[Rfam]
RNA sequence: UAAUGGCUUAGUUAGGAGGCAGAGAUCAAAAGAUCAUAUUAUUGGUCUUCUCAGGUUUGCUCAGAGGACAAUUUGAUUCUUUUAUCGAUUGUCCUUCAAGUAGCUUCGGACAUUU
Numbered sequence: 001u002a003a004u005g006g007c008u009u010a011g012u013u014a015g016g017a018g019g020c021a022g023a024g025a026u027c028a029a030a031a032g033a034u035c036a037u038a039u040u041a042u043u044g045g046u047c048u049u050c051u052c053a054g055g056u057u058u059g060c061u062c063a064g065a066g067g068a069c070a071a072u073u074u075g076a077u078u079c080u081u082u083u084a085u086c087g088a089u090u091g092u093c094c095u096u097c098a099a100g101u102a103g104c105u106u107c108g109g110a111c112a113u114u115u
Stems, first nucleotide, its partner, number of pairs: 004021002007018003032047005050109002053106004060100002064096009
This 115-nucleotide sequence from Citrus unshiu belongs to the Rfam family "Small nucleolar RNA U19". Pairs were carried over by alignment from the consensus structure, which was predicted with WAR. On this family, see Marker et al., Curr Biol 2002: "Experimental RNomics: identification of 140 candidates for small non-messenger RNAs in the plant Arabidopsis thaliana". Gene Ontology terms of the family: RNA processing and nucleolus. The match comes from Rfam's covariance-model search (58 bits).